[Rfam]
Small nucleolar RNA SNORD86: an 85-nucleotide RNA from Bos grunniens.
RNA sequence: AAUAUUGAUGGUUGAGCAGGGCUCCCUAAGUUCUACAGGCCUCUGUUAUGGGGGUGAUGUUAUGGCACCCUGGUGCUGAGAGAUU
Numbered sequence: 001a002a003u004a005u006u007g008a009u010g011g012u013u014g015a016g017c018a019g020g021g022c023u024c025c026c027u028a029a030g031u032u033c034u035a036c037a038g039g040c041c042u043c044u045g046u047u048a049u050g051g052g053g054g055u056g057a058u059g060u061u062a063u064g065g066c067a068c069c070c071u072g073g074u075g076c077u078g079a080g081a082g083a084u085u
Stems, first nucleotide, its partner, number of pairs: 001085003005081002010076001015074001017072005022064001025059001027057001029055001031053002036050002038047003
The literature on the family includes a 2001 paper in Biochem Biophys Res Commun by Filippini et al., "U86, a novel snoRNA with an unprecedented gene organization in yeast". Taxonomically the source falls in Bos (Eukaryota, Eumetazoa, Deuterostomia, Laurasiatheria). Gene Ontology terms of the family: nucleolus and RNA processing. The base pairs follow the family's consensus structure, which was predicted with RNAalifold. Rfam classes the family as a C/D-box small nucleolar RNA.